[Rfam]
RNA sequence: CUUGAUGGACCCCAGCCACAGCGGCCCGUCGGCCUCCCGCUCCUGGCCGUAGGUGGCCAGCAGCGCCUGUGCCUC
Numbered sequence: 001c002u003u004g005a006u007g008g009a010c011c012c013c014a015g016c017c018a019c020a021g022c023g024g025c026c027c028g029u030c031g032g033c034c035u036c037c038c039g040c041u042c043c044u045g046g047c048c049g050u051a052g053g054u055g056g057c058c059a060g061c062a063g064c065g066c067c068u069g070u071g072c073c074u075c
Base pairs, nucleotide, nucleotide: 015025016024017023032070033069038065039064043060044059045058047056048055049054
Shown here is a 75-nucleotide RNA from Streptomyces sp. Rer75, a member of the family "ASpks TB sRNA". It is annotated as an antisense RNA. For this family Rfam cites "Identification of small RNAs in Mycobacterium tuberculosis" (Arnvig and Young, Mol Microbiol, 2009). The family has 77 seed sequences and 9,052 matches in Rfam 15.1.